[Rfam]
RNA: Small nucleolar RNA snoR109
Nucleotides: 105
Stems, first nucleotide, its partner, number of pairs: 027098007038086003042082003046077001
Number, partner (000 for none) and nucleotide at each position: 001000u002000g003000g004000c005000u006000g007000u008000a009000g010000c011000u012000a013000u014000a015000u016000c017000a018000a019000u020000g021000u022000a023000u024000u025000g026000u027098u028097g029096g030095a031094g032093u033092u034000a035000a036000c037000u038086g039085g040084c041000c042082g043081g044080u045000u046077g047000u048000u049000u050000g051000u052000u053000a054000u055000a056000g057000a058000g059000u060000u061000c062000u063000g064000a065000u066000c067000a068000g069000g070000a071000g072000c073000u074000u075000c076000c077046u078000a079000u080044a081043u082042c083000u084040g085039c086038u087000u088000a089000c090000c091000g092033a093032a094031c095030u096029c097028c098027a099000u100000a101000u102000a103000u104000u105000u